This 72-nucleotide sequence from Mesonia algae belongs to the Rfam family "Flavo-1 RNA".
Rfam 15.1 lists 7,497 matches to the family in 411 species.
By type it is a small RNA.
The match comes from Rfam's covariance-model search (57 bits).
The base pairs follow the family's consensus structure, which is taken from published work.
Lineage of the source: Bacteria > Bacteroidota > Flavobacteriia > Flavobacteriaceae > Mesonia.
RNA sequence: UUUAAGUUAGGGAUUGCAGUGGCAUCCUUUUGCUUUUUUUAGCAAAAGAUAUAACGAAAAGCCCGCCUACGC
Numbered sequence: 001u002u003u004a005a006g007u008u009a010g011g012g013a014u015u016g017c018a019g020u021g022g023c024a025u026c027c028u029u030u031u032g033c034u035u036u037u038u039u040u041a042g043c044a045a046a047a048g049a050u051a052u053a054a055c056g057a058a059a060a061g062c063c064c065g066c067c068u069a070c071g072c
Base pairs, nucleotide, nucleotide: 010064011063012062014060015059019055020054024050025049026048030045031044032043033042034041